[Rfam]
This 87-nucleotide RNA from Streptomyces sp. H-KF8 belongs to the Rfam family "sodF sRNA". The literature on the family includes a 2014 paper in Nucleic Acids Res by Kim et al., "Inverse regulation of Fe- and Ni-containing SOD genes by a Fur family regulator Nur through small RNA processed from 3'UTR of the sodF mRNA". The family's RNA type in Rfam is small RNA.
RNA sequence: ACGUCCUGCUCGUGAUCGUCUUCUCGACCUUCACCGGCAGGCCGCGCAAGGGGGCUUCCGGCCGGGACGACCCGGCCGGAGACCCCU
Numbered sequence: 001a002c003g004u005c006c007u008g009c010u011c012g013u014g015a016u017c018g019u020c021u022u023c024u025c026g027a028c029c030u031u032c033a034c035c036g037g038c039a040g041g042c043c044g045c046g047c048a049a050g051g052g053g054g055c056u057u058c059c060g061g062c063c064g065g066g067a068c069g070a071c072c073c074g075g076c077c078g079g080a081g082a083c084c085c086c087u
Base pairs, nucleotide, nucleotide: 003042005041006040007039008038009037010036012034013033014032015031018028019027050087051086052085053084054083056081057080058079059078060077061076062075063074064073065072